[Rfam]
A member of the RNA family "MIR396 microRNA precursor family" from Jatropha curcas, 134 nucleotides long.

RNA sequence: GGUCAUGCUAUUCCACAGCUUUCUUGAACUUUCUUGAACUACUUUCUUGAUUUCUUUCUUUGUUUUUGGUUUUUGAAGAUCUUUUCACCAGUAGAAUCAUGAAAGCUCAAGAAAGCUGUGGGAGAACAUGGCAU
Numbered sequence: 001g002g003u004c005a006u007g008c009u010a011u012u013c014c015a016c017a018g019c020u021u022u023c024u025u026g027a028a029c030u031u032u033c034u035u036g037a038a039c040u041a042c043u044u045u046c047u048u049g050a051u052u053u054c055u056u057u058c059u060u061u062g063u064u065u066u067u068g069g070u071u072u073u074u075g076a077a078g079a080u081c082u083u084u085u086c087a088c089c090a091g092u093a094g095a096a097u098c099a100u101g102a103a104a105g106c107u108c109a110a111g112a113a114a115g116c117u118g119u120g121g122g123a124g125a126a127c128a129u130g131g132c133a134u
Base pairs, nucleotide, nucleotide: 003131004130005129006128007127013121014120015119017117018116019115020114021113022112024110025109026108027107029105030104031103032102033101
Overview: A search with the family's covariance model found it, with a score of 88 bits. A reference for the family is Jones-Rhoades and Bartel (2004), "Computational identification of plant microRNAs and their targets, including a stress-induced miRNA", Mol Cell.